[Rfam]
RNA sequence: GGCGAUAAAGUGCGGCGUGAAAUAGAUGCAGCGGACCCGGGGGCAGUACCCGGCGACUCCACCAAAACCCCUUGGAAACGAGGGGCUCUGACGGGGUCGAACCAGGAUCGACGUGUAUUGAAAGGCGCUGUUUUUUCCCGGGCUGAGUAACCCGUUCAAGGCUCAAAACCACAAGUGCUAACGAUAACGAAGCACUCGCGAUUGCGGCGUAA
Numbered sequence: 001g002g003c004g005a006u007a008a009a010g011u012g013c014g015g016c017g018u019g020a021a022a023u024a025g026a027u028g029c030a031g032c033g034g035a036c037c038c039g040g041g042g043g044c045a046g047u048a049c050c051c052g053g054c055g056a057c058u059c060c061a062c063c064a065a066a067a068c069c070c071c072u073u074g075g076a077a078a079c080g081a082g083g084g085g086c087u088c089u090g091a092c093g094g095g096g097u098c099g100a101a102c103c104a105g106g107a108u109c110g111a112c113g114u115g116u117a118u119u120g121a122a123a124g125g126c127g128c129u130g131u132u133u134u135u136u137c138c139c140g141g142g143c144u145g146a147g148u149a150a151c152c153c154g155u156u157c158a159a160g161g162c163u164c165a166a167a168a169c170c171a172c173a174a175g176u177g178c179u180a181a182c183g184a185u186a187a188c189g190a191a192g193c194a195c196u197c198g199c200g201a202u203u204g205c206g207g208c209g210u211a212a
Stems, first nucleotide, its partner, number of pairs: 001138002004135002015128004027117003031114003037053005054099007139154004
permuted transfer-messenger RNA: a 212-nucleotide RNA sequence from Sphingomonas sp. HMP6. From the family's description: Bacterial tmRNA, also known as 10Sa RNA or SsrA, is named for its dual tRNA and mRNA-like properties. The family's RNA type in Rfam is non-coding RNA gene. Lineage of the source: Bacteria > Pseudomonadota > Alphaproteobacteria > Sphingomonadales > Sphingomonas.